[Rfam]
RNA sequence: CCACGUCCCGACGCACCAUCCCCCCGGCGCCGGGACUCUCCCAGAGCCGGGCUCCGGCGCCCAUCCCCCCCCGGGCGCCGGAGCCCGGCUCCACA
Numbered sequence: 001c002c003a004c005g006u007c008c009c010g011a012c013g014c015a016c017c018a019u020c021c022c023c024c025c026g027g028c029g030c031c032g033g034g035a036c037u038c039u040c041c042c043a044g045a046g047c048c049g050g051g052c053u054c055c056g057g058c059g060c061c062c063a064u065c066c067c068c069c070c071c072c073g074g075g076c077g078c079c080g081g082a083g084c085c086c087g088g089c090u091c092c093a094c095a
Base pairs, nucleotide, nucleotide: 005036006035007034008033009032010031012029013028014027044091045090046089047088048087049086050085051084052083053082055080056079057078058077059076060075061074062073